[Rfam]
RNA sequence: CGCCGUGGCAGUGAUGACCCCAACUUGUUUGCACAUUUGCCGACCCUCGUGAGUGACCCGCAGGAAAUUGAGCAAUACGUGUUUAUU
Numbered sequence: 001c002g003c004c005g006u007g008g009c010a011g012u013g014a015u016g017a018c019c020c021c022a023a024c025u026u027g028u029u030u031g032c033a034c035a036u037u038u039g040c041c042g043a044c045c046c047u048c049g050u051g052a053g054u055g056a057c058c059c060g061c062a063g064g065a066a067a068u069u070g071a072g073c074a075a076u077a078c079g080u081g082u083u084u085a086u087u
Stems, first nucleotide, its partner, number of pairs: 001055003011034003016029003040051001041049002